[Rfam]
RNA: Small nucleolar RNA SNORA72
Organism: Enhydra lutris
RNA sequence: CCUCGAAUAUUCUCACUGUCCUGAUUUUGUAAUAAUCAGAGCAAGCUAAGCAUUUGCUAUAUUAACAUCAUGCAUGUGUCCCCAGACUUAGUUCUUUCCCUAGGCCUGCUUUUAUCAAAGCUGGUGACAGAC
Numbered sequence: 001c002c003u004c005g006a007a008u009a010u011u012c013u014c015a016c017u018g019u020c021c022u023g024a025u026u027u028u029g030u031a032a033u034a035a036u037c038a039g040a041g042c043a044a045g046c047u048a049a050g051c052a053u054u055u056g057c058u059a060u061a062u063u064a065a066c067a068u069c070a071u072g073c074a075u076g077u078g079u080c081c082c083c084a085g086a087c088u089u090a091g092u093u094c095u096u097u098c099c100c101u102a103g104g105c106c107u108g109c110u111u112u113u114a115u116c117a118a119a120g121c122u123g124g125u126g127a128c129a130g131a132c
Stems, first nucleotide, its partner, number of pairs: 004056002017043003021039006067125004072121002083108003087104005